Rfam assigns this 102-nucleotide RNA sequence from Propithecus coquereli to the family "Y RNA".
[Rfam]
RNA sequence: GGCUGGUCUGAGUGCAGUGGUGUUUAUAACAAAUUGAUCACAACCAGUUAUCAAUUCCUUUGUUCCUUCCUUACUCCCACUGCUUCCCUUGACCAGUCUAAA
Dot-bracket structure: ((((((((.((..(.(((((.(.....(((.((.........................)).)))...........))))))....)..))))))))))....